About this RNA: This 383-nucleotide RNA from Zygotorulaspora mrakii belongs to the Rfam family "Small nucleolar RNA snR37". The source organism's lineage runs through Eukaryota, Opisthokonta, Fungi, Saccharomycotina and Zygotorulaspora. The base pairs follow the family's consensus structure, which was predicted with WAR. The family is grouped with related families in Rfam's "SNORA64 clan". Rfam classes the family as an H/ACA-box small nucleolar RNA.

[Rfam]
RNA sequence: AUCAUCAGUAGUGGUUAAUACUAUCUCAAGAUAAUAUUAAUUUACUUUACUAUAGAAACCUAAAGUUUCUUUCGUUUGUGUUCUUCCGCCCUUUGUGAAACGAGAGAACCAUCUUUCCGUUUGGCAAUAGGCUAGUUAAUACUGGAACUCUGAAUGAUUGAUUCAAAUAACAAUAACCCAUAGCUGAAUUGAAUUUGACUGUCUCCAAACAAGACGGGCACAGAUUCCAUUUCGUUUCCGGUUUCUUAGAUCAAUAUUUGUUUAUGAAGAAGCAUUUCAGAUCCCAUAUGGGAUUUGGGAUGAGGUGCACGCUUUCAGAGGGUUGCGUAAUGCAGCUUGAGAGUUUGAAAGCUUCAGUGACUCUUCUUCGUGGCAAGACAUUU
Numbered sequence: 001a002u003c004a005u006c007a008g009u010a011g012u013g014g015u016u017a018a019u020a021c022u023a024u025c026u027c028a029a030g031a032u033a034a035u036a037u038u039a040a041u042u043u044a045c046u047u048u049a050c051u052a053u054a055g056a057a058a059c060c061u062a063a064a065g066u067u068u069c070u071u072u073c074g075u076u077u078g079u080g081u082u083c084u085u086c087c088g089c090c091c092u093u094u095g096u097g098a099a100a101c102g103a104g105a106g107a108a109c110c111a112u113c114u115u116u117c118c119g120u121u122u123g124g125c126a127a128u129a130g131g132c133u134a135g136u137u138a139a140u141a142c143u144g145g146a147a148c149u150c151u152g153a154a155u156g157a158u159u160g161a162u163u164c165a166a167a168u169a170a171c172a173a174u175a176a177c178c179c180a181u182a183g184c185u186g187a188a189u190u191g192a193a194u195u196u197g198a199c200u201g202u203c204u205c206c207a208a209a210c211a212a213g214a215c216g217g218g219c220a221c222a223g224a225u226u227c228c229a230u231u232u233c234g235u236u237u238c239c240g241g242u243u244u245c246u247u248a249g250a251u252c253a254a255u256a257u258u259u260g261u262u263u264a265u266g267a268a269g270a271a272g273c274a275u276u277u278c279a280g281a282u283c284c285c286a287u288a289u290g291g292g293a294u295u296u297g298g299g300a301u302g303a304g305g306u307g308c309a310c311g312c313u314u315u316c317a318g319a320g321g322g323u324u325g326c327g328u329a330a331u332g333c334a335g336c337u338u339g340a341g342a343g344u345u346u347g348a349a350a351g352c353u354u355c356a357g358u359g360a361c362u363c364u365u366c367u368u369c370g371u372g373g374c375a376a377g378a379c380a381u382u383u
Stems, first nucleotide, its partner, number of pairs: 008048001010046004014041007022033004054246007065164001068161002072157006078150001080148005088133001090131003094127001095125002098122001102117006134143003186232004191227002195223003199217005258376005265370008281301006288294001304362003308359003314349006320338007
Annotation:
Gene Ontology terms of the family: nucleolus and RNA processing.